[Rfam]
RNA sequence: GAAAGGCUGUAGUAUCUAGCAGCUGGGUACGUUAUGAUGUAUCCCAAUUUGAG
Numbered sequence: 001g002a003a004a005g006g007c008u009g010u011a012g013u014a015u016c017u018a019g020c021a022g023c024u025g026g027g028u029a030c031g032u033u034a035u036g037a038u039g040u041a042u043c044c045c046a047a048u049u050u051g052a053g
Base pairs, nucleotide, nucleotide: 005024006023007022008021009020010019025044026043027042028041029040030039031038
This 53-nucleotide RNA belongs to the Rfam family "S4-Clostridia ribosomal protein leader". The family is grouped with related families in Rfam's "Ribosomal Protein S4 Leader clan". On this family, see Eckert and Weinberg, BMC Microbiol 2020: "Discovery of 20 novel ribosomal leader candidates in bacteria and archaea". Rfam's curators put it in the seed alignment.